RNA: L25-Gammaproteobacteria ribosomal protein leader
RNA sequence: CCUGCAGCUGGGUCGCCUGUUGCAGG
Numbered sequence: 001c002c003u004g005c006a007g008c009u010g011g012g013u014c015g016c017c018u019g020u021u022g023c024a025g026g
Stems, first nucleotide, its partner, number of pairs: 001026008010017002